[Rfam]
A member of the RNA family "Fluoride riboswitch aptamer (crcB RNA motif)" from Enterocloster lavalensis, 85 nucleotides long. Rfam 15.1 lists 2,293 matches to the family in 1,982 species.
RNA sequence: CAGCGCAAAGGGAAUGAGGUUCUCCCGUGGCGCAAGCCAGAACCGCUUGUAAGGCAGAUUAUGAGCUGAUGACUUCUGUGAUGAU
Dot-bracket structure: .........[[[[..((((((.]]]]..................((((((((......))))))))....)))))).........
Numbered sequence: 001c002a003g004c005g006c007a008a009a010g011g012g013a014a015u016g017a018g019g020u021u022c023u024c025c026c027g028u029g030g031c032g033c034a035a036g037c038c039a040g041a042a043c044c045g046c047u048u049g050u051a052a053g054g055c056a057g058a059u060u061a062u063g064a065g066c067u068g069a070u071g072a073c074u075u076c077u078g079u080g081a082u083g084a085u
Stems, first nucleotide, its partner, number of pairs: 010026004016076006045066008